Notes
A member of the RNA family "Mammalian CPEB3 ribozyme" from Alligator mississippiensis, 80 nucleotides long. The family has 14 seed sequences and 5,706 matches in Rfam 15.1. The source organism's lineage runs through Eukaryota, Metazoa, Teleostomi, Tetrapoda and Alligator. About the family: The mammalian CPEB3 ribozyme is a self cleaving RNA located in the second intron of the CPEB3 gene which belongs to a family of genes regulating messenger RNA polyadenylation.

RNA sequence: AGAGGUCAUAAGUUUGAGGCCAUAGCAGAAGCACUUAUGGUGCAACCAUGUCAUAUUGCAAUGAAUCUGCAAAUUCUGCU
Numbered sequence: 001a002g003a004g005g006u007c008a009u010a011a012g013u014u015u016g017a018g019g020c021c022a023u024a025g026c027a028g029a030a031g032c033a034c035u036u037a038u039g040g041u042g043c044a045a046c047c048a049u050g051u052c053a054u055a056u057u058g059c060a061a062u063g064a065a066u067c068u069g070c071a072a073a074u075u076c077u078g079c080u
Base pairs, nucleotide, nucleotide: 013048018047019046024080025079026078027077028076029075030074031043032042033041052069053068055066056065057064